[Rfam]
RNA sequence: GUCGGGAGGGCGGCAGCCAUACAACACCCUGUAAAGGGGAAAGCUGCCCGCCGUCUAGCUACGGUUUCUUACCCUCCCGACAUUCUCAG
Numbered sequence: 001g002u003c004g005g006g007a008g009g010g011c012g013g014c015a016g017c018c019a020u021a022c023a024a025c026a027c028c029c030u031g032u033a034a035a036g037g038g039g040a041a042a043g044c045u046g047c048c049c050g051c052c053g054u055c056u057a058g059c060u061a062c063g064g065u066u067u068c069u070u071a072c073c074c075u076c077c078c079g080a081c082a083u084u085c086u087c088a089g
Base pairs, nucleotide, nucleotide: 001081002080003079004078005077006076007075008074009073012048013047014046015045017043027038028037029036050065051064052063053062054061
Dot-bracket structure: (((((((((..((((.(.........(((......)))....).)))).(((((......))))).......)))))))))........